[Rfam]
RNA sequence: UCGCAUUCACUCGUAGCCCCCUUGGUGGCUGUACUGUAAUCGCUUCCAAGAUCCGAGAGAAUGCUACAGAAAUCGCGGGGCAGUCCAAAGGGUGCGCAGCGCCUGUGGCUCAGCUCUAUUUCAUCCCUGCGACAUCU
Dot-bracket structure: ..((((.(..(((.......(((((.(((............))).)))))...))))...))))...(((..(((((((.........((((((.((..(....)..)).)).))))........)))))))..)))
Numbered sequence: 001u002c003g004c005a006u007u008c009a010c011u012c013g014u015a016g017c018c019c020c021c022u023u024g025g026u027g028g029c030u031g032u033a034c035u036g037u038a039a040u041c042g043c044u045u046c047c048a049a050g051a052u053c054c055g056a057g058a059g060a061a062u063g064c065u066a067c068a069g070a071a072a073u074c075g076c077g078g079g080g081c082a083g084u085c086c087a088a089a090g091g092g093u094g095c096g097c098a099g100c101g102c103c104u105g106u107g108g109c110u111c112a113g114c115u116c117u118a119u120u121u122c123a124u125c126c127c128u129g130c131g132a133c134a135u136c137u
Stems, first nucleotide, its partner, number of pairs: 003064004008057001011056003021050005027044003068137003073132007089117004093112002096109002100105001